[Rfam]
RNA sequence: UGGGCAAAUGCCGGAGGAACUACAGCCUCUUAAGCUCGUGGUCGCGGGUUCGAGUCCCGCCUCUGCCACUCGACGGCAGGGUAGCUCAGCGGUAGAGCACGAAAACGUUUCUCCAACCCUGGUUGCCUGCAC
Numbered sequence: 001u002g003g004g005c006a007a008a009u010g011c012c013g014g015a016g017g018a019a020c021u022a023c024a025g026c027c028u029c030u031u032a033a034g035c036u037c038g039u040g041g042u043c044g045c046g047g048g049u050u051c052g053a054g055u056c057c058c059g060c061c062u063c064u065g066c067c068a069c070u071c072g073a074c075g076g077c078a079g080g081g082u083a084g085c086u087c088a089g090c091g092g093u094a095g096a097g098c099a100c101g102a103a104a105a106c107g108u109u110u111c112u113c114c115a116a117c118c119c120u121g122g123u124u125g126c127c128u129g130c131a132c
Stems, first nucleotide, its partner, number of pairs: 002128006013114007037101003044060005051092001061081006084098004